This 53-nucleotide RNA sequence from Coleofasciculus sp. LEGE 07092 belongs to the Rfam family "Nitrogen stress-induced RNA 1". Taxonomically the source falls in Coleofasciculus (Bacteria, Cyanobacteriota, Coleofasciculales, Coleofasciculaceae). Pairs were carried over by alignment from the consensus structure. Rfam classes the family as a small RNA. A search with the family's covariance model found it, with a score of 50 bits.
[Rfam]
RNA sequence: AGGUAGAUGCACCCUGAUUCAAUAGCCUCAGCUAGCCGCUGGGGUUUUUUUUG
Numbered sequence: 001a002g003g004u005a006g007a008u009g010c011a012c013c014c015u016g017a018u019u020c021a022a023u024a025g026c027c028u029c030a031g032c033u034a035g036c037c038g039c040u041g042g043g044g045u046u047u048u049u050u051u052u053g
Stems, first nucleotide, its partner, number of pairs: 002013003025045008